[Rfam]
RNA sequence: AAAGCAGAGAUUGUGUGUAUCGGCGUUGUGCGACUGUAAAUGUACUUUGACCGAAAGUAUUCUCUGCAAAAUUAAUUCUCGGAGGGGAAGAUGGGCAGUUGUUUUUCAAUUAUCCAUUGAAAGUUUCAACAAUCAUCUUCUCCACAGCU
Numbered sequence: 001a002a003a004g005c006a007g008a009g010a011u012u013g014u015g016u017g018u019a020u021c022g023g024c025g026u027u028g029u030g031c032g033a034c035u036g037u038a039a040a041u042g043u044a045c046u047u048u049g050a051c052c053g054a055a056a057g058u059a060u061u062c063u064c065u066g067c068a069a070a071a072u073u074a075a076u077u078c079u080c081g082g083a084g085g086g087g088a089a090g091a092u093g094g095g096c097a098g099u100u101g102u103u104u105u106u107c108a109a110u111u112a113u114c115c116a117u118u119g120a121a122a123g124u125u126u127c128a129a130c131a132a133u134c135a136u137c138u139u140c141u142c143c144a145c146a147g148c149u
Stems, first nucleotide, its partner, number of pairs: 004067007015045006084143011098130004